[Rfam]
RNA sequence: CUCUCAUCCAGAGAGGCGGAGGGACUGGCCCUAUGAAGCCCGGCAACCGUCAGCAACAUGUCUGCUGGAACCGGUGCCAAUUCCUGCAAAGCGCUAAAGCGCUUUGGAAGAUGAGAG
Dot-bracket structure: ((((((((....(.(((...(((.[.[[)))......))))((((.((.((................))...))))))...(]].]((((((........))))))..)))))))))
Shown here is a 117-nucleotide sequence from Thermoanaerobacteraceae bacterium SP2, a member of the family "SAM riboswitch aptamer (S box leader)". Taxonomically the source falls in Thermoanaerobacteraceae (Bacteria, Bacillati, Bacillota, Thermoanaerobacterales). The match comes from Rfam's covariance-model search (91 bits). Rfam links the family to the GO term regulation of gene expression.